[Rfam]
RNA sequence: AUAUUCCUUCGGGGCAGGGUGAGGCGCGUCGGCGCCAAUUCCCGACCGGUGGUGACGUGCUCGGCCAGGAGCACGAAGUCCACGAGCCGCAAGGCACGAACUGGUGAAAGUCCAGUACCGACGGUAUAGUCCGGAUGAAAGAAGGAAGUG
Numbered sequence: 001a002u003a004u005u006c007c008u009u010c011g012g013g014g015c016a017g018g019g020u021g022a023g024g025c026g027c028g029u030c031g032g033c034g035c036c037a038a039u040u041c042c043c044g045a046c047c048g049g050u051g052g053u054g055a056c057g058u059g060c061u062c063g064g065c066c067a068g069g070a071g072c073a074c075g076a077a078g079u080c081c082a083c084g085a086g087c088c089g090c091a092a093g094g095c096a097c098g099a100a101c102u103g104g105u106g107a108a109a110g111u112c113c114a115g116u117a118c119c120g121a122c123g124g125u126a127u128a129g130u131c132c133g134g135a136u137g138a139a140a141g142a143a144g145g146a147a148g149u150g
Stems, first nucleotide, its partner, number of pairs: 004147007017043003045130002047120002049083004078118002088094001100116005122133003